[Rfam]
RNA sequence: GACAAAGAGUGUGAGAGACACUCUCGCCGAAAGUCCAAGGGUUCCUGCUUAAAGCUAAUCUGAGCAGGGUAAGCCGACCCCUAAGGCGAGGCCGAAAGGCGUAGUCGAUGGGAACCAGGUUAAUAUUCCUGGGCCAGAUGGAAGUGACGGAUCUCGAAGGUAGUUCAUCCUUAUCGGAUUGAAUGGGCUGCUUAGAGGUCCCUGGAAAUAGCUCCAUCAUGAGAUCGUACCCUAAACCGACACAGGUGGACAGGUAGAGAAUACCAAGGCGCU
Numbered sequence: 001g002a003c004a005a006a007g008a009g010u011g012u013g014a015g016a017g018a019c020a021c022u023c024u025c026g027c028c029g030a031a032a033g034u035c036c037a038a039g040g041g042u043u044c045c046u047g048c049u050u051a052a053a054g055c056u057a058a059u060c061u062g063a064g065c066a067g068g069g070u071a072a073g074c075c076g077a078c079c080c081c082u083a084a085g086g087c088g089a090g091g092c093c094g095a096a097a098g099g100c101g102u103a104g105u106c107g108a109u110g111g112g113a114a115c116c117a118g119g120u121u122a123a124u125a126u127u128c129c130u131g132g133g134c135c136a137g138a139u140g141g142a143a144g145u146g147a148c149g150g151a152u153c154u155c156g157a158a159g160g161u162a163g164u165u166c167a168u169c170c171u172u173a174u175c176g177g178a179u180u181g182a183a184u185g186g187g188c189u190g191c192u193u194a195g196a197g198g199u200c201c202c203u204g205g206a207a208a209u210a211g212c213u214c215c216a217u218c219a220u221g222a223g224a225u226c227g228u229a230c231c232c233u234a235a236a237c238c239g240a241c242a243c244a245g246g247u248g249g250a251c252a253g254g255u256a257g258a259g260a261a262u263a264c265c266a267a268g269g270c271g272c273u
Stems, first nucleotide, its partner, number of pairs: 006024006025271004033251004039231002044068006053061002075227003080111002085106003089102001091100003115132005135223001137218001140215003145210001149201007237246002253265004

The record is a 273-nucleotide part of an RNA from Sulfitobacter mediterraneus, which matches "Bacterial large subunit ribosomal RNA" in Rfam. Its family is annotated with structural constituent of ribosome and ribosome in the Gene Ontology.